RNA: Purine riboswitch aptamer
Organism: Paenibacillus cellulosilyticus
RNA sequence: UACAACAAACAAAAUAUUUUUCGUAUAAUCUCAAGAAUUGGCUUGAGAGUCUCUACGAGAUCACCGUAAAUGAUCUGGCUACGAAAAAAAUAGGAAGAGCA
Numbered sequence: 001u002a003c004a005a006c007a008a009a010c011a012a013a014a015u016a017u018u019u020u021u022c023g024u025a026u027a028a029u030c031u032c033a034a035g036a037a038u039u040g041g042c043u044u045g046a047g048a049g050u051c052u053c054u055a056c057g058a059g060a061u062c063a064c065c066g067u068a069a070a071u072g073a074u075c076u077g078g079c080u081a082c083g084a085a086a087a088a089a090a091u092a093g094g095a096a097g098a099g100c101a
Base pairs, nucleotide, nucleotide: 018087019086020085021084022083023082024081025080029048030047031046032045033044034043035042058076059075060074061073062072063071
Dot-bracket structure: .................((((((((...(((((((......))))))).........((((((.......))))))...))))))))..............